A member of the RNA family "L31-Actinobacteria ribosomal protein leader" from Varibaculum cambriense, 45 nucleotides long.
RNA sequence: CCGGUUCCGGUUCACCUUAUGUAACCUGCAUUUGGACCCGGCGCC
Numbered sequence: 001c002c003g004g005u006u007c008c009g010g011u012u013c014a015c016c017u018u019a020u021g022u023a024a025c026c027u028g029c030a031u032u033u034g035g036a037c038c039c040g041g042c043g044c045c
Stems, first nucleotide, its partner, number of pairs: 003045003007041004015035002019031005
Notes:
The base pairs follow the family's consensus structure, which is taken from published work. A reference for the family is Eckert and Weinberg (2020), "Discovery of 20 novel ribosomal leader candidates in bacteria and archaea", BMC Microbiol. The source organism's lineage runs through Bacteria, Actinomycetales, Actinomycetaceae, Varibaculum and Varibaculum cambriense. Rfam's curators put it in the seed alignment.